[Rfam]
RNA sequence: CGCUUCGGUCCGGCGUCGGUGGGUUAUCGAUACUUCCGAGUGUUCGCACUCGGUUCCCUCGGGAGCCACCCCGUCGUUCAGUAACUUUGGUUUCUGUCCGACACCCCCUUCCCAUCGACACCAACUUGACCGUAGU
Numbered sequence: 001c002g003c004u005u006c007g008g009u010c011c012g013g014c015g016u017c018g019g020u021g022g023g024u025u026a027u028c029g030a031u032a033c034u035u036c037c038g039a040g041u042g043u044u045c046g047c048a049c050u051c052g053g054u055u056c057c058c059u060c061g062g063g064a065g066c067c068a069c070c071c072c073g074u075c076g077u078u079c080a081g082u083a084a085c086u087u088u089g090g091u092u093u094c095u096g097u098c099c100g101a102c103a104c105c106c107c108c109u110u111c112c113c114a115u116c117g118a119c120a121c122c123a124a125c126u127u128g129a130c131c132g133u134a135g136u
Stems, first nucleotide, its partner, number of pairs: 002136003006132005012122002015119009036053007054064003073102004
RNA: Nematode sRNA ceN72-3_ceN74-2